[Rfam]
RNA sequence: UAGAAGUCAGCUCCGCACAAUUGGAUUCGAUGAAGCAUUGUACGGAGC
Numbered sequence: 001u002a003g004a005a006g007u008c009a010g011c012u013c014c015g016c017a018c019a020a021u022u023g024g025a026u027u028c029g030a031u032g033a034a035g036c037a038u039u040g041u042a043c044g045g046a047g048c
Stems, first nucleotide, its partner, number of pairs: 011047005017041003

Description: This 48-nucleotide RNA sequence from Dorea sp. D27 belongs to the Rfam family "uup RNA". A search with the family's covariance model found it, with a score of 56 bits. Taxonomically the source falls in Dorea (Bacteria, Bacillati, Bacillota, Clostridia). The base pairs follow the family's consensus structure, which is taken from published work.